RNA sequence: CCGGCUGGACGACCUGCCGGUCGUAUCGCAUGGGGACGGCCCC
Numbered sequence: 001c002c003g004g005c006u007g008g009a010c011g012a013c014c015u016g017c018c019g020g021u022c023g024u025a026u027c028g029c030a031u032g033g034g035g036a037c038g039g040c041c042c043c
Stems, first nucleotide, its partner, number of pairs: 001020005007014002032043004

The record is a 43-nucleotide RNA from Schaalia zhouxuedongae, which matches "Guanidine-II riboswitch aptamer (mini-ykkC)" in Rfam. The family's consensus secondary structure is taken from published work. Lineage of the source: Bacteria > Actinomycetes > Actinomycetales > Actinomycetaceae > Schaalia. About the family: Simpler in structure and has fewer highly conserved nucleotide positions than the ykkC-yxkD leader. Despite this each of its two stem-loop structures directly bind free guanidine. Therefore, mini-ykkC RNA motif represents a distinct class of guanidine-sensing RNAs.